Shown here is a 222-nucleotide RNA from Danionella cerebrum, a member of the family "Small nucleolar RNA SNORA73 family".
U17 (SNORA73A and SNORA73B) also known as E1 belongs to the H/ACA class of small nucleolar RNAs (snoRNAs). Vertebrate U17 is intron-encoded and ranges in length from 200-230 nucleotides, longer than most snoRNAs. It is one of the most abundant snoRNAs in human cells and is essential for the cleavage of pre-rRNA within the 5' external transcribed spacer (ETS).
Lineage of the source: Eukaryota > Opisthokonta > Gnathostomata > Danionidae > Danionella.
It scores 184 bits against the family's covariance model.
The family is grouped with related families in Rfam's "snR30-U17 clan".
[Rfam]
RNA sequence: CCAACGUGGGCAUCUAAGUGAGAUGGCUCUCAUUUGGCUCUGUCUGUGUGGCGUAAGGGAGCGUAGCACUUAAGUGCCAUGACGUAGAUUCCCGUUCCACGACGUUGGAUAAUAAGCUUGUCCCCGGCCUUUGGCUGGUGUGGACGGCGUCCUGUAUAUUCCUACAUCUUCUCAGAGCCCUUGGGGCCGUUACUGGGGAGGUAAACCAUGCAGUGCACACUU
Numbered sequence: 001c002c003a004a005c006g007u008g009g010g011c012a013u014c015u016a017a018g019u020g021a022g023a024u025g026g027c028u029c030u031c032a033u034u035u036g037g038c039u040c041u042g043u044c045u046g047u048g049u050g051g052c053g054u055a056a057g058g059g060a061g062c063g064u065a066g067c068a069c070u071u072a073a074g075u076g077c078c079a080u081g082a083c084g085u086a087g088a089u090u091c092c093c094g095u096u097c098c099a100c101g102a103c104g105u106u107g108g109a110u111a112a113u114a115a116g117c118u119u120g121u122c123c124c125c126g127g128c129c130u131u132u133g134g135c136u137g138g139u140g141u142g143g144a145c146g147g148c149g150u151c152c153u154g155u156a157u158a159u160u161c162c163u164a165c166a167u168c169u170u171c172u173c174a175g176a177g178c179c180c181u182u183g184g185g186g187c188c189g190u191u192a193c194u195g196g197g198g199a200g201g202u203a204a205a206c207c208a209u210g211c212a213g214u215g216c217a218c219a220c221u222u
Base pairs, nucleotide, nucleotide: 001108002107003106004105005104006103007102008045009044010043011042012041014037015036016035020029021028022027048100049099050098051097057093058092059091060090063085064084066080152213153212154211155210156209157208168200169199170198171197172196173195177187178186179185180184